A member of the RNA family "Purine riboswitch aptamer" from Psychrilyobacter sp. S5, 98 nucleotides long. The organism belongs to Psychrilyobacter, within Bacteria.

[Rfam]
RNA sequence: AAAUUUAUUAUUAAUAUAACUCAUAUAAAUCGGAAAUAGGGUCCGAUGUAUCUACGACUAACCUUAAAUUAGUAUCUAUGAGUGAAUUCUAACCCAAA
Dot-bracket structure: ..................(((((((...((((((.......)))))).........(((((.......)))))...)))))))...............